RNA: Bacterial large subunit ribosomal RNA, nucleotides 15 to 614
RNA sequence: GAGCACAUGGUGGAUGCCUAGGCACCAAGAGCCGAAGAAGGUCGUAGGAGGCUGCGAAAAGCCUCGGGGAGCUGCCAACCGAGCUGAGAUCCGAGGAUUACCGAAUGGGGAAACCCGGCAGGAGUCAUGUCCUGUCACCCACACCUGAACACAUAGGGUGUGCGGAGGGAACGUGGGGAAGUGAAACAUCUCAGUACCCACAGGAAGAGAAAGCAAACGCGAUUCCGUUAGUAGUGGCGAGCGAAAGCGGAAGAGGCUAAACCGAGCGCGCGUGAUAGCCGGCAGGCGUUGCGCGUUCGGGGUCGUGGGAUCAAUCUGACUGUUCUGCCGAACAGUCAGGGAGUAAGAAAGACUCGUGUUAGUCGAAGGACAUUGGAAAAAUCCGGCACAGAGGGUGACACCCCCGUAGACGAAAACACGAAUCCUCCCGAUUGAUAUCCCAAGUAGCAGCGAGCCCGUGAAAUUCGCUGUGAAUCCGGCGGGACCACCCGCUAAGCCUAAAUACUACUUGGUGACCGAUAGCGGACAAGUACCGUGAGGGAAAGGUGAAAAGUACCCCGGGAGGGGAGUGAAAUAGUACCUGAAACCAUGUGCUUACAA
Numbered sequence: 001g002a003g004c005a006c007a008u009g010g011u012g013g014a015u016g017c018c019u020a021g022g023c024a025c026c027a028a029g030a031g032c033c034g035a036a037g038a039a040g041g042u043c044g045u046a047g048g049a050g051g052c053u054g055c056g057a058a059a060a061g062c063c064u065c066g067g068g069g070a071g072c073u074g075c076c077a078a079c080c081g082a083g084c085u086g087a088g089a090u091c092c093g094a095g096g097a098u099u100a101c102c103g104a105a106u107g108g109g110g111a112a113a114c115c116c117g118g119c120a121g122g123a124g125u126c127a128u129g130u131c132c133u134g135u136c137a138c139c140c141a142c143a144c145c146u147g148a149a150c151a152c153a154u155a156g157g158g159u160g161u162g163c164g165g166a167g168g169g170a171a172c173g174u175g176g177g178g179a180a181g182u183g184a185a186a187c188a189u190c191u192c193a194g195u196a197c198c199c200a201c202a203g204g205a206a207g208a209g210a211a212a213g214c215a216a217a218c219g220c221g222a223u224u225c226c227g228u229u230a231g232u233a234g235u236g237g238c239g240a241g242c243g244a245a246a247g248c249g250g251a252a253g254a255g256g257c258u259a260a261a262c263c264g265a266g267c268g269c270g271c272g273u274g275a276u277a278g279c280c281g282g283c284a285g286g287c288g289u290u291g292c293g294c295g296u297u298c299g300g301g302g303u304c305g306u307g308g309g310a311u312c313a314a315u316c317u318g319a320c321u322g323u324u325c326u327g328c329c330g331a332a333c334a335g336u337c338a339g340g341g342a343g344u345a346a347g348a349a350a351g352a353c354u355c356g357u358g359u360u361a362g363u364c365g366a367a368g369g370a371c372a373u374u375g376g377a378a379a380a381a382u383c384c385g386g387c388a389c390a391g392a393g394g395g396u397g398a399c400a401c402c403c404c405c406g407u408a409g410a411c412g413a414a415a416a417c418a419c420g421a422a423u424c425c426u427c428c429c430g431a432u433u434g435a436u437a438u439c440c441c442a443a444g445u446a447g448c449a450g451c452g453a454g455c456c457c458g459u460g461a462a463a464u465u466c467g468c469u470g471u472g473a474a475u476c477c478g479g480c481g482g483g484a485c486c487a488c489c490c491g492c493u494a495a496g497c498c499u500a501a502a503u504a505c506u507a508c509u510u511g512g513u514g515a516c517c518g519a520u521a522g523c524g525g526a527c528a529a530g531u532a533c534c535g536u537g538a539g540g541g542a543a544a545g546g547u548g549a550a551a552a553g554u555a556c557c558c559c560g561g562g563a564g565g566g567g568a569g570u571g572a573a574a575u576a577g578u579a580c581c582u583g584a585a586a587c588c589a590u591g592u593g594c595u596u597a598c599a600a
Stems, first nucleotide, its partner, number of pairs: 001596010016581001017546002021517002023514007030506002032168002040102003043056003062096007071084003107116003117136007138165002140162007172203001173201005183190002213220002223502001224251005234242002254499004262300011307441003311435005349426001351424002354421007362411003368384003373380001387391001393405003447471008478493005533540002556567004